This 78-nucleotide RNA from Podarcis muralis belongs to the Rfam family "Small nucleolar RNA SNORD126". It scores 66 bits against the family's covariance model.
RNA sequence: AGCCUGUUAUGAUGAACUGCAUGUUCUGUCCGUGUUUCACCUGAUUAACCCUGAUUAUGCACAUGCUCUGAGCGGAUC
Numbered sequence: 001a002g003c004c005u006g007u008u009a010u011g012a013u014g015a016a017c018u019g020c021a022u023g024u025u026c027u028g029u030c031c032g033u034g035u036u037u038c039a040c041c042u043g044a045u046u047a048a049c050c051c052u053g054a055u056u057a058u059g060c061a062c063a064u065g066c067u068c069u070g071a072g073c074g075g076a077u078c
Stems, first nucleotide, its partner, number of pairs: 002077001004075004
The base pairs follow the family's consensus structure, which was predicted with WAR. NCBI's taxonomy places the organism under Eukaryota, Craniata, Gnathostomata, Lacertidae, Podarcis.